Shown here is a 75-nucleotide sequence from Streptomyces malaysiensis, a member of the family "ASpks TB sRNA". The organism belongs to Streptomyces, within Bacteria. Pairs were carried over by alignment from the consensus structure, which is taken from published work. It is annotated as an antisense RNA.
RNA sequence: CUUGAUCGACCCCAGCAGCAGCGGCCGGUCCUCGGGACGGUCCUGGCCGUACGUGGCGAGCAGCGCCUGGAGCUC
Numbered sequence: 001c002u003u004g005a006u007c008g009a010c011c012c013c014a015g016c017a018g019c020a021g022c023g024g025c026c027g028g029u030c031c032u033c034g035g036g037a038c039g040g041u042c043c044u045g046g047c048c049g050u051a052c053g054u055g056g057c058g059a060g061c062a063g064c065g066c067c068u069g070g071a072g073c074u075c
Base pairs, nucleotide, nucleotide: 015025016024032070033069038065039064043060044059047056048055049054